RNA sequence: GCGCCAUAUGAUGAGAAAUCUUAUCCAACUCACGACGGUCAUCUGAGACACUUAGUGUGUAAUGGUCAGUAUUUUUUAGUUCCUGGAGAGA
Dot-bracket structure: .(.(............................................(((...)))..............................).).
Numbered sequence: 001g002c003g004c005c006a007u008a009u010g011a012u013g014a015g016a017a018a019u020c021u022u023a024u025c026c027a028a029c030u031c032a033c034g035a036c037g038g039u040c041a042u043c044u045g046a047g048a049c050a051c052u053u054a055g056u057g058u059g060u061a062a063u064g065g066u067c068a069g070u071a072u073u074u075u076u077u078a079g080u081u082c083c084u085g086g087a088g089a090g091a
Stems, first nucleotide, its partner, number of pairs: 002090001004088001049057003